[Rfam]
This 97-nucleotide sequence from Clostridium liquoris belongs to the Rfam family "TPP riboswitch aptamer (THI element)".

RNA sequence: AAGAAAAGCUAGGGGUGCCGCAAGGCUGAGAAGGUAAAACCUAACCCUUGUACCUGAACUGGAUAAUACCAGCGUAGGAAAGCGCUAUUUUAGUAGC
Numbered sequence: 001a002a003g004a005a006a007a008g009c010u011a012g013g014g015g016u017g018c019c020g021c022a023a024g025g026c027u028g029a030g031a032a033g034g035u036a037a038a039a040c041c042u043a044a045c046c047c048u049u050g051u052a053c054c055u056g057a058a059c060u061g062g063a064u065a066a067u068a069c070c071a072g073c074g075u076a077g078g079a080a081a082g083c084g085c086u087a088u089u090u091u092a093g094u095a096g097c
Stems, first nucleotide, its partner, number of pairs: 008083003011048004017026003033041003053078004059072004
It scores 64 bits against the family's covariance model.